[Rfam]
RNA: Small nucleolar RNA Z247
Organism: Populus deltoides
Nucleotides: 138
Base pairs, nucleotide, nucleotide: 005136006135007134008133087107088106089105091103
Number, partner (000 for none) and nucleotide at each position: 001000c002000c003000u004000c005136u006135c007134a008133c009000a010000a011000a012000u013000g014000a015000u016000g017000a018000u019000a020000u021000c022000a023000u024000c025000a026000c027000u028000u029000a030000u031000a032000u033000u034000g035000u036000u037000g038000c039000u040000g041000a042000a043000c044000u045000u046000g047000g048000c049000c050000a051000g052000g053000a054000g055000u056000a057000u058000g059000a060000u061000u062000c063000c064000c065000u066000a067000g068000c069000c070000c071000c072000a073000c074000a075000a076000u077000u078000u079000c080000c081000u082000c083000a084000c085000g086000g087107c088106u089105u090000g091103a092000u093000c094000c095000u096000g097000u098000u099000a100000g101000c102000u103091u104000g105089g106088a107087g108000g109000a110000a111000c112000u113000c114000u115000u116000u117000u118000u119000u120000c121000u122000g123000c124000u125000u126000c127000u128000c129000a130000u131000c132000u133008g134007u135006g136005a137000a138000u